[Rfam]
RNA sequence: CGUUGAAAAGGGCAAACUGCCGGUGACGGCAGGACGCAAAGCCUCCGAACUCGAUCGAGUUAGCGGGGCUACCAAC
Numbered sequence: 001c002g003u004u005g006a007a008a009a010g011g012g013c014a015a016a017c018u019g020c021c022g023g024u025g026a027c028g029g030c031a032g033g034a035c036g037c038a039a040a041g042c043c044u045c046c047g048a049a050c051u052c053g054a055u056c057g058a059g060u061u062a063g064c065g066g067g068g069c070u071a072c073c074a075a076c
Base pairs, nucleotide, nucleotide: 012037013036017032018031019030020029021028022027040070041069042068043067045066046065047064048061049060050059051058052057
RNA: c-di-GMP-I riboswitch aptamer